[Rfam]
RNA sequence: AUUUUUGGUAGAGGCGCAUUUUUUAAGAGUAAAUUGCAGGAUAUGUUCAGCCAUAGUCGAAUGCAAUGGAAAGGAAAAGAUGCCGAAGGAGUAGUAACCCUGAAUUUCUAUUCCUGGGCAUAUGGUUAAGAGCCAUAUGACUGUCAUCAAUGCAACAUGAUGGAGUGCUACCUAGAGA
Numbered sequence: 001a002u003u004u005u006u007g008g009u010a011g012a013g014g015c016g017c018a019u020u021u022u023u024u025a026a027g028a029g030u031a032a033a034u035u036g037c038a039g040g041a042u043a044u045g046u047u048c049a050g051c052c053a054u055a056g057u058c059g060a061a062u063g064c065a066a067u068g069g070a071a072a073g074g075a076a077a078a079g080a081u082g083c084c085g086a087a088g089g090a091g092u093a094g095u096a097a098c099c100c101u102g103a104a105u106u107u108c109u110a111u112u113c114c115u116g117g118g119c120a121u122a123u124g125g126u127u128a129a130g131a132g133c134c135a136u137a138u139g140a141c142u143g144u145c146a147u148c149a150a151u152g153c154a155a156c157a158u159g160a161u162g163g164a165g166u167g168c169u170a171c172c173u174a175g176a177g178a
Stems, first nucleotide, its partner, number of pairs: 007172005016083009033067006087115008096106002116142002119139008144163006
RNA: Lysine riboswitch aptamer
Organism: Mobilisporobacter senegalensis